[Rfam]
This 387-nucleotide RNA from Devosia equisanguinis belongs to the Rfam family "Bacterial RNase P class A". Rfam's curators write: Ribonuclease P (RNase P) is a ubiquitous endoribonuclease, found in archaea, bacteria and eukarya as well as chloroplasts and mitochondria. By type it is a ribozyme. Pairs were carried over by alignment from the consensus structure, which is taken from published work. Lineage of the source: Bacteria > Pseudomonadota > Hyphomicrobiales > Devosiaceae > Devosia. A search with the family's covariance model found it, with a score of 301 bits.
RNA sequence: CCAGUUGACCGGGUGACCGCUGGCAUGGGGGUAACCCCAUGCUGGAGGAAAGUCCGGGCUCCAUCGAAACACGGUGACGGCUAACAGCCGCCGGGGGCGACCCCAGGGAAAGUGCCACAGAAAGCAAACCGCCCCGGUCCGCUGGGGUAAGGGUGAAAGGGUGCGGUAAGAGCGCACCGGGUGCCUGGCAACAGGGACCGCACGGUAAACCCCACCGGGAGCAAGACCAAAUAGGGAUGACGCGAAGCCUCGGCUUCAGCCUGUUUCGAGGCCAUGUCAUCCGGGUUGGUUGCACGAGCGCGUCCAGCAAUGGCCGCCACAGAUGAAUGGUCACCACGUCGCGGCAACGCGGCCCUACAGAACCCGGCUUAUAGGUCAACUGGCGUU
Numbered sequence: 001c002c003a004g005u006u007g008a009c010c011g012g013g014u015g016a017c018c019g020c021u022g023g024c025a026u027g028g029g030g031g032u033a034a035c036c037c038c039a040u041g042c043u044g045g046a047g048g049a050a051a052g053u054c055c056g057g058g059c060u061c062c063a064u065c066g067a068a069a070c071a072c073g074g075u076g077a078c079g080g081c082u083a084a085c086a087g088c089c090g091c092c093g094g095g096g097g098c099g100a101c102c103c104c105a106g107g108g109a110a111a112g113u114g115c116c117a118c119a120g121a122a123a124g125c126a127a128a129c130c131g132c133c134c135c136g137g138u139c140c141g142c143u144g145g146g147g148u149a150a151g152g153g154u155g156a157a158a159g160g161g162u163g164c165g166g167u168a169a170g171a172g173c174g175c176a177c178c179g180g181g182u183g184c185c186u187g188g189c190a191a192c193a194g195g196g197a198c199c200g201c202a203c204g205g206u207a208a209a210c211c212c213c214a215c216c217g218g219g220a221g222c223a224a225g226a227c228c229a230a231a232u233a234g235g236g237a238u239g240a241c242g243c244g245a246a247g248c249c250u251c252g253g254c255u256u257c258a259g260c261c262u263g264u265u266u267c268g269a270g271g272c273c274a275u276g277u278c279a280u281c282c283g284g285g286u287u288g289g290u291u292g293c294a295c296g297a298g299c300g301c302g303u304c305c306a307g308c309a310a311u312g313g314c315c316g317c318c319a320c321a322g323a324u325g326a327a328u329g330g331u332c333a334c335c336a337c338g339u340c341g342c343g344g345c346a347a348c349g350c351g352g353c354c355c356u357a358c359a360g361a362a363c364c365c366g367g368c369u370u371a372u373a374g375g376u377c378a379a380c381u382g383g384c385g386u387u
Stems, first nucleotide, its partner, number of pairs: 001383010011372001012335007020045009050370003054367005059221004068266002072217005078090004092106001093104004107212002112210002114206003129152002131148007160178006179201001180199003184195004225291004235282006259272004298318001300317003304313003